[Rfam]
RNA: Guanidine-II riboswitch aptamer (mini-ykkC)
Organism: Imbroritus primus
RNA sequence: UUGCGAGGACGACCUCCCCCAACUCUGGGUUGCAUGUCCGGGACGGCCCGG
Numbered sequence: 001u002u003g004c005g006a007g008g009a010c011g012a013c014c015u016c017c018c019c020c021a022a023c024u025c026u027g028g029g030u031u032g033c034a035u036g037u038c039c040g041g042g043a044c045g046g047c048c049c050g051g
Base pairs, nucleotide, nucleotide: 001022002021003020005016006015007014008013038051039050040049041048042047